Background
Shown here is a 143-nucleotide RNA sequence from Aquarana catesbeiana, a member of the family "Small nucleolar RNA SNORD94". Lineage of the source: Eukaryota > Craniata > Neobatrachia > Ranidae > Aquarana. Rfam links the family to the GO terms RNA processing and nucleolus. It is annotated as a C/D-box small nucleolar RNA.
RNA sequence: GUGGCAGUGAUGAGUCGCGCAGGGGUACGGACCUCGGCUGUAUCAUGGGAGCCGAAUGCAGAUUGUGAUGUUUCUGAGAUUUGUCAACGUGUAGUUGGCUGCUUGGAACUGGUCUGCAUGAGACUGUCGCCCGACUGAGCCAC
Dot-bracket structure: (((((.....................................................................................................................................)))))